Rfam assigns this 315-nucleotide RNA sequence from Rotaria sordida to the family "Nuclear RNase P". Pairs were carried over by alignment from the consensus structure, which is taken from published work.
RNA sequence: GUGGGUUGAAGCUUACUUACAGGGAUUACAUACGAGUGCAAUUUAAUAGUCACUCUUUAAUAUUCAUCCUUGGGAAGGUCUGAGAUAAAGACCAAUCGAGACUCUAGCAGGGUUCCAUGCGUUUAACGUAUGGCAGGUGAUCAGAAAGCUUCCGGUGUGAAGUUACUUUCUCAAUGGUAAUGUACAAGAUCAACAUUUGUUGAGAUACUCCCAUUGAAAAAGUUGUGAAAGCCUGUGGUCAGCAACAUGAAGUUCAAUGAGUAAGAUGAUCAUUAUCCUAUGAUCAGAACUCAAUUCAGACUACUCUCAACCUAC
Numbered sequence: 001g002u003g004g005g006u007u008g009a010a011g012c013u014u015a016c017u018u019a020c021a022g023g024g025a026u027u028a029c030a031u032a033c034g035a036g037u038g039c040a041a042u043u044u045a046a047u048a049g050u051c052a053c054u055c056u057u058u059a060a061u062a063u064u065c066a067u068c069c070u071u072g073g074g075a076a077g078g079u080c081u082g083a084g085a086u087a088a089a090g091a092c093c094a095a096u097c098g099a100g101a102c103u104c105u106a107g108c109a110g111g112g113u114u115c116c117a118u119g120c121g122u123u124u125a126a127c128g129u130a131u132g133g134c135a136g137g138u139g140a141u142c143a144g145a146a147a148g149c150u151u152c153c154g155g156u157g158u159g160a161a162g163u164u165a166c167u168u169u170c171u172c173a174a175u176g177g178u179a180a181u182g183u184a185c186a187a188g189a190u191c192a193a194c195a196u197u198u199g200u201u202g203a204g205a206u207a208c209u210c211c212c213a214u215u216g217a218a219a220a221a222g223u224u225g226u227g228a229a230a231g232c233c234u235g236u237g238g239u240c241a242g243c244a245a246c247a248u249g250a251a252g253u254u255c256a257a258u259g260a261g262u263a264a265g266a267u268g269a270u271c272a273u274u275a276u277c278c279u280a281u282g283a284u285c286a287g288a289a290c291u292c293a294a295u296u297c298a299g300a301c302u303a304c305u306c307u308c309a310a311c312c313u314a315c
Stems, first nucleotide, its partner, number of pairs: 001315004007309003012265007021071005034055005039049001080299005090240004100114005116132006133236006149222003267286006
Dot-bracket structure: ((((..(((..(((((((..(((((........((((((.........).)))))...........)))))........[[[[[.....((((......(((((.....))))).((((((.....))))))((((((..........(((....................................................................)))........))))))))))..................))))))).((((((........))))))........]]]]].......)))..))))